[Rfam]
RNA: CRISPR RNA direct repeat element
RNA sequence: GUUUCAGAGGGACCUCUGUGGGGUUGAAGC
Numbered sequence: 001g002u003u004u005c006a007g008a009g010g011g012a013c014c015u016c017u018g019u020g021g022g023g024u025u026g027a028a029g030c
Stems, first nucleotide, its partner, number of pairs: 011025005